[Rfam]
RNA sequence: GGGUGUCUGAGCCUUUCUGGUUCAGGCAAGACGCAGGUACCAGAAAUGCGAAGACCCCACUUGUUAAUCCAUUAACUCGUGAGGUCUGCAUGAAGUACCUUAACACUACUGAUUGUAGCCUCUUCCUUGCAGAGAGGUCAAAGUUUAUG
Number, nucleotide and partner (000 for none) at each position: 001g058002g057003g056004u000005g055006u054007c053008u052009g000010a000011g049012c048013c000014u046015u045016u044017c043018u042019g041020g040021u039022u000023c037024a000025g000026g034027c033028a000029a000030g000031a000032c000033g027034c026035a000036g000037g023038u000039a021040c020041c019042a018043g017044a016045a015046a014047u000048g012049c011050g000051a000052a008053g007054a006055c005056c003057c002058c001059a080060c079061u000062u000063g076064u075065u074066a073067a072068u000069c000070c000071a000072u067073u066074a065075a064076c063077u000078c000079g060080u059081g122082a121083g120084g119085u118086c000087u000088g000089c115090a114091u000092g000093a000094a110095g109096u108097a107098c000099c000100u000101u000102a000103a000104c000105a000106c000107u097108a096109c095110u094111g000112a000113u000114u090115g089116u000117a000118g085119c084120c083121u082122c081123u000124u000125c000126c137127u136128u000129g000130c000131a000132g000133a000134g000135a000136g127137g126138u000139c000140a000141a000142a000143g000144u000145u000146u000147a000148u000149g000
Rfam assigns this 149-nucleotide sequence to the family "sok antitoxin (CssrC)". About the family: Also identified in Shigella as CssrC. The family's consensus secondary structure is taken from published work. On this family, see Kawano et al., Mol Microbiol 2007: "An antisense RNA controls synthesis of an SOS-induced toxin evolved from an antitoxin".